Description:
The record is a 115-nucleotide sequence from Hepatocystis sp. ex Piliocolobus tephrosceles, which matches "U5 spliceosomal RNA" in Rfam. Pairs were carried over by alignment from the consensus structure, which is taken from published work. A search with the family's covariance model found it, with a score of 93 bits. Rfam links the family to the GO terms spliceosomal tri-snRNP complex assembly and U5 snRNP. The literature on the family includes a 1997 paper in Nucleic Acids Res by Zwieb, "The uRNA database".
[Rfam]
RNA sequence: GGUAUGCGUACUUCUUACAUAACGAAUCAAUCUUUCGCCUUUUACUAAAGAUUGCCGUGUAAAAAGUACUUUAAAGCAUAAUACCACAAAUUUUUGUCGCUCCUUUUAAGGUGCG
Numbered sequence: 001g002g003u004a005u006g007c008g009u010a011c012u013u014c015u016u017a018c019a020u021a022a023c024g025a026a027u028c029a030a031u032c033u034u035u036c037g038c039c040u041u042u043u044a045c046u047a048a049a050g051a052u053u054g055c056c057g058u059g060u061a062a063a064a065a066g067u068a069c070u071u072u073a074a075a076g077c078a079u080a081a082u083a084c085c086a087c088a089a090a091u092u093u094u095u096g097u098c099g100c101u102c103c104u105u106u107u108a109a110g111g112u113g114c115g
Base pairs, nucleotide, nucleotide: 003080004079005078006077009068010067011066012065013064015062016061017060018059019058028054029053030052031051032050033049034048035047098115099114100113102111103110104109